[Rfam]
RNA sequence: CGAUGGCAUCACGCCCAGUGCCAGGAGAUGUCAUCACGUGCUACCUUGUUCCAUGAUGUCAUACUCCAGCACCGCACUUGUCCGUCG
Numbered sequence: 001c002g003a004u005g006g007c008a009u010c011a012c013g014c015c016c017a018g019u020g021c022c023a024g025g026a027g028a029u030g031u032c033a034u035c036a037c038g039u040g041c042u043a044c045c046u047u048g049u050u051c052c053a054u055g056a057u058g059u060c061a062u063a064c065u066c067c068a069g070c071a072c073c074g075c076a077c078u079u080g081u082c083c084g085u086c087g
Stems, first nucleotide, its partner, number of pairs: 001087003005083002010080002018072004024066002028062003032058005